[Rfam]
RNA sequence: GGUGAUAGAUGAUGAUUAACACAAGAAAUUGGGAAUCUCUCUGAAUUAUCAUGUUGAUUUCUUUUCUGAUAUCACC
Numbered sequence: 001g002g003u004g005a006u007a008g009a010u011g012a013u014g015a016u017u018a019a020c021a022c023a024a025g026a027a028a029u030u031g032g033g034a035a036u037c038u039c040u041c042u043g044a045a046u047u048a049u050c051a052u053g054u055u056g057a058u059u060u061c062u063u064u065u066c067u068g069a070u071a072u073c074a075c076c
Stems, first nucleotide, its partner, number of pairs: 001076007
Background:
Shown here is a 76-nucleotide RNA from Mizuhopecten yessoensis, a member of the family "Small nucleolar RNA SNORD79". snoRNA U79 or Z22 is found in intron 7 of the gas5 gene in humans and is also present in mice. NCBI's taxonomy places the organism under Eukaryota, Metazoa, Protostomia, Bivalvia, Mizuhopecten. Rfam classes the family as a C/D-box small nucleolar RNA. On this family, see Galardi et al., Mol Cell Biol 2002: "Purified box C/D snoRNPs are able to reproduce site-specific 2'-O-methylation of target RNA in vitro". Pairs were carried over by alignment from the consensus structure, which was predicted with PFOLD.